[Rfam]
RNA sequence: CUUUGCCUUUAGCCUCUUUACAAUGCUGCCUUGUGGAAUCCAGAUCAAGCAGCAUUGUACAGGGCUAUGAUAGCGCAG
Numbered sequence: 001c002u003u004u005g006c007c008u009u010u011a012g013c014c015u016c017u018u019u020a021c022a023a024u025g026c027u028g029c030c031u032u033g034u035g036g037a038a039u040c041c042a043g044a045u046c047a048a049g050c051a052g053c054a055u056u057g058u059a060c061a062g063g064g065c066u067a068u069g070a071u072a073g074c075g076c077a078g
Stems, first nucleotide, its partner, number of pairs: 014064004019059010030049004

Shown here is a 78-nucleotide sequence from Clupea harengus, a member of the family "mir-103/107 microRNA precursor family".
Rfam describes the family as follows. This family consists of the mammalian microRNA (miRNA) precursors mir-103 and mir107. Animal miRNAs are transcribed as ~70nt precursors and subsequently processed by the Dicer enzyme to give a ~22nt product.
Taxonomically the source falls in Clupea (Eukaryota, Actinopteri, Clupei, Clupeidae).
Rfam 15.1 lists 1,982 matches to the family in 645 species.